The record is a 71-nucleotide RNA sequence from Streptomyces phyllanthi, which matches "Actino-pnp RNA" in Rfam.

[Rfam]
RNA sequence: GCCGGUCCUCGGUAGUGGCCCCCGGGGGAAAAGGGGAAAUCGAGCCCCGGGUGCUUCGAUCGAAGACCGGC
Numbered sequence: 001g002c003c004g005g006u007c008c009u010c011g012g013u014a015g016u017g018g019c020c021c022c023c024g025g026g027g028g029a030a031a032a033g034g035g036g037a038a039a040u041c042g043a044g045c046c047c048c049g050g051g052u053g054c055u056u057c058g059a060u061c062g063a064a065g066a067c068c069g070g071c
Stems, first nucleotide, its partner, number of pairs: 001071007009063005017055003021051007
The organism belongs to Streptomyces, within Bacteria.
It is annotated as a cis-regulatory element.
Pairs were carried over by alignment from the consensus structure, which is taken from published work.